[Rfam]
RNA sequence: AAUCGACAAGGGCAAAGCCACCGAAAGGUGGCGACGCAAAGUCACCGGUCUAACGAGCCCGUUCGCGGGCUCCACGACAGCGGGACCGCCGGA
Number, nucleotide and partner (000 for none) at each position: 001a000002a000003u000004c000005g000006a000007c000008a000009a000010g000011g000012g037013c036014a000015a000016a000017g032018c031019c030020a029021c028022c027023g000024a000025a000026a000027g022028g021029u020030g019031g018032c017033g000034a000035c000036g013037c012038a000039a000040a000041g086042u085043c084044a000045c083046c082047g081048g078049u077050c076051u000052a000053a000054c000055g072056a071057g070058c069059c068060c067061g066062u000063u000064c000065g000066c061067g060068g059069g058070c057071u056072c055073c000074a000075c000076g050077a049078c048079a000080g000081c047082g046083g045084g043085a042086c041087c000088g000089c000090c000091g000092g000093a000

A member of the RNA family "c-di-GMP-I riboswitch aptamer" from Povalibacter uvarum, 93 nucleotides long.
The organism belongs to Povalibacter, within Bacteria.